The family of this 76-nucleotide RNA sequence from Suricata suricatta is "mir-30 microRNA precursor family". Pairs were carried over by alignment from the consensus structure, which was predicted with PFOLD. This family consists of the mammalian microRNA (miRNA) precursor mir-30a. Animal miRNAs are transcribed as ~70nt precursors and subsequently processed by the Dicer enzyme to give a ~22nt product. Gene Ontology terms of the family: RISC complex and gene silencing by miRNA. The literature on the family includes a 2001 paper in Science by Lagos-Quintana et al., "Identification of novel genes coding for small expressed RNAs". Lineage of the source: Eukaryota > Eumetazoa > Chordata > Vertebrata > Suricata.

[Rfam]
RNA sequence: CCUGUCGCUGUAAACAUCCCCGACUGGAAGCUGUGGGCCACGGCAGAGCUUUCAGUCGGAUGUUUGCUGCUACCGG
Numbered sequence: 001c002c003u004g005u006c007g008c009u010g011u012a013a014a015c016a017u018c019c020c021c022g023a024c025u026g027g028a029a030g031c032u033g034u035g036g037g038c039c040a041c042g043g044c045a046g047a048g049c050u051u052u053c054a055g056u057c058g059g060a061u062g063u064u065u066g067c068u069g070c071u072a073c074c075g076g
Stems, first nucleotide, its partner, number of pairs: 002075001004073002008069001010067010023056010
Dot-bracket structure: .(.((..(.((((((((((...((((((((((..............)))))))))).)))))))))).)..)).).